[Rfam]
RNA sequence: CCGUGCUAGGUGGGGAGGUAGCGGUGCCCUGUACUCGCAAACCGCUAUAGCGAGACUGAAUCCCUUCUUGAGGUUCCAUAACUUCAGGGUCUGACCUAAGUAAGUGGUGUUGACGCCUGGGUUCUACGCAACGGAAAGCCGUAAACCCUGUCAGGUCCGGAAGGAAGCAGCAGUAAGCGGUCCCUUCCGUGUGCCGUAGAGUUGCCUGGGCCGAGCAAACUGCUUAGGUAACGCUUGAGGCUAUGGAAUCAAGGGAAGGUGCACGG
Numbered sequence: 001c002c003g004u005g006c007u008a009g010g011u012g013g014g015g016a017g018g019u020a021g022c023g024g025u026g027c028c029c030u031g032u033a034c035u036c037g038c039a040a041a042c043c044g045c046u047a048u049a050g051c052g053a054g055a056c057u058g059a060a061u062c063c064c065u066u067c068u069u070g071a072g073g074u075u076c077c078a079u080a081a082c083u084u085c086a087g088g089g090u091c092u093g094a095c096c097u098a099a100g101u102a103a104g105u106g107g108u109g110u111u112g113a114c115g116c117c118u119g120g121g122u123u124c125u126a127c128g129c130a131a132c133g134g135a136a137a138g139c140c141g142u143a144a145a146c147c148c149u150g151u152c153a154g155g156u157c158c159g160g161a162a163g164g165a166a167g168c169a170g171c172a173g174u175a176a177g178c179g180g181u182c183c184c185u186u187c188c189g190u191g192u193g194c195c196g197u198a199g200a201g202u203u204g205c206c207u208g209g210g211c212c213g214a215g216c217a218a219a220c221u222g223c224u225u226a227g228g229u230a231a232c233g234c235u236u237g238a239g240g241c242u243a244u245g246g247a248a249u250c251a252a253g254g255g256a257a258g259g260u261g262c263a264c265g266g
Base pairs, nucleotide, nucleotide: 001266002265003264004263005262006261009057010056011055012030013029014028015027017025019023034054035053036052037051038050063259064258065257066256067255068254069253072250073249074248075247076246079243080242082240083239084238085237086236087235088234092230093229096227097226098225099224100223101222104220105219107216108215115211116210117209118208119207120206121205122204123200124199125198126197127196128195129191130190132189133188134187135186136185138181139180140179141178142177148173149172150171151170156165157164158163
Description:
Bacterial large signal recognition particle RNA: a 266-nucleotide RNA sequence from Texcoconibacillus texcoconensis. Pairs were carried over by alignment from the consensus structure, which is taken from published work. Its Rfam clan is "SRP clan". NCBI's taxonomy places the organism under Bacteria, Bacillati, Bacillota, Bacilli, Texcoconibacillus.